[Rfam]
RNA sequence: CGAGCAAGCCAGACAGCCGCGGGUGCAGCGCCGAAAGGUCGCAUCUGAGGAAAGUCCGAGCUCCACAGGGCAGGAUAGCGGGCAACGCCCGCCGGAGGCGACUCCAGGGACAGUGCAACAGAGAUAUACCGCCGGGUUUCGGCCCGGCAAGGGUGGAAAGGCGAGGUAAGAGCUCACCGGCGCGCAGGAGACUGCGCGGCCCUGCAAACCCUAUCCGGAGCAACACCCGUAGGGGAGUUAUACGCUAGCCCGGCGUUAUCCCCGUGAUGGUGGCGUGAGCCGUGUGGCAACGCACGGCCAAGAUAGAUGGCUGUCAAAAACAGAACUCGGCUUACAGACUUACUCGCACC
Numbered sequence: 001c002g003a004g005c006a007a008g009c010c011a012g013a014c015a016g017c018c019g020c021g022g023g024u025g026c027a028g029c030g031c032c033g034a035a036a037g038g039u040c041g042c043a044u045c046u047g048a049g050g051a052a053a054g055u056c057c058g059a060g061c062u063c064c065a066c067a068g069g070g071c072a073g074g075a076u077a078g079c080g081g082g083c084a085a086c087g088c089c090c091g092c093c094g095g096a097g098g099c100g101a102c103u104c105c106a107g108g109g110a111c112a113g114u115g116c117a118a119c120a121g122a123g124a125u126a127u128a129c130c131g132c133c134g135g136g137u138u139u140c141g142g143c144c145c146g147g148c149a150a151g152g153g154u155g156g157a158a159a160g161g162c163g164a165g166g167u168a169a170g171a172g173c174u175c176a177c178c179g180g181c182g183c184g185c186a187g188g189a190g191a192c193u194g195c196g197c198g199g200c201c202c203u204g205c206a207a208a209c210c211c212u213a214u215c216c217g218g219a220g221c222a223a224c225a226c227c228c229g230u231a232g233g234g235g236a237g238u239u240a241u242a243c244g245c246u247a248g249c250c251c252g253g254c255g256u257u258a259u260c261c262c263c264g265u266g267a268u269g270g271u272g273g274c275g276u277g278a279g280c281c282g283u284g285u286g287g288c289a290a291c292g293c294a295c296g297g298c299c300a301a302g303a304u305a306g307a308u309g310g311c312u313g314u315c316a317a318a319a320a321c322a323g324a325a326c327u328c329g330g331c332u333u334a335c336a337g338a339c340u341u342a343c344u345c346g347c348a349c350c
Stems, first nucleotide, its partner, number of pairs: 001346004006341003010337001012315007020047007028039001052333003056330005061220004068251004073216005078092005093107001094105004108211002113209002115205003129152002131148007160178002163175003180200001181198007224272004233263003237259002242256005279298008
RNA: Bacterial RNase P class A
Organism: Ethanoligenens harbinense